[Rfam]
RNA sequence: GUGACAGAAGAGAGUGAGCACACAUGGUCUUUUCUUGCAUGGUGUUCAUGCUCGAAGCUUUGCGUGCUCAGUCUCUAUCUGUCAC
Numbered sequence: 001g002u003g004a005c006a007g008a009a010g011a012g013a014g015u016g017a018g019c020a021c022a023c024a025u026g027g028u029c030u031u032u033u034c035u036u037g038c039a040u041g042g043u044g045u046u047c048a049u050g051c052u053c054g055a056a057g058c059u060u061u062g063c064g065u066g067c068u069c070a071g072u073c074u075c076u077a078u079c080u081g082u083c084a085c
Stems, first nucleotide, its partner, number of pairs: 001085008010075004015070007023062002
Description
mir-156 microRNA precursor family: an 85-nucleotide sequence from Nyssa sinensis. The literature on the family includes a 2002 paper in Genes Dev by Reinhart et al., "MicroRNAs in plants". Its family is annotated with miRNA-mediated post-transcriptional gene silencing and RISC complex in the Gene Ontology. Rfam 15.1 lists 1,401 matches to the family in 221 species. This family represents the plant microRNA (miRNA) precursor mir-156. The family's consensus secondary structure was predicted with PFOLD. NCBI's taxonomy places the organism under Eukaryota, Tracheophyta, Spermatophyta, Cornales, Nyssa.